[Rfam]
RNA sequence: CCUCCCGCUUCCCUCCCUGAGCGGGGCCUUUUGCUGAUACCUAAAGGCAUUUUCCCCCGGCAGCGCCUUGCUGCCGGGGUUUUUAUU
Numbered sequence: 001c002c003u004c005c006c007g008c009u010u011c012c013c014u015c016c017c018u019g020a021g022c023g024g025g026g027c028c029u030u031u032u033g034c035u036g037a038u039a040c041c042u043a044a045a046g047g048c049a050u051u052u053u054c055c056c057c058c059g060g061c062a063g064c065g066c067c068u069u070g071c072u073g074c075c076g077g078g079g080u081u082u083u084u085a086u087u
Stems, first nucleotide, its partner, number of pairs: 004025006026048006055079010